Description:
A member of the RNA family "DUF3800-IX RNA", 69 nucleotides long. From the family's description: Actinobacteria, Firmicutes (1 example), Nitrospirae, Proteobacteria, Verrucomicrobia (1 example). It is annotated as a small RNA. Pairs were carried over by alignment from the consensus structure, which is taken from published work.
[Rfam]
RNA sequence: ACCCGCUGAUCCGAACAGUCGCCGUAUGGUGCGCGUGCCUGCAAUCGCAGGCUAGGGCAGCGGGUCGCC
Dot-bracket structure: ((((((((.(((.....((((((....)))).))..(((((......)))))..)))))))))))....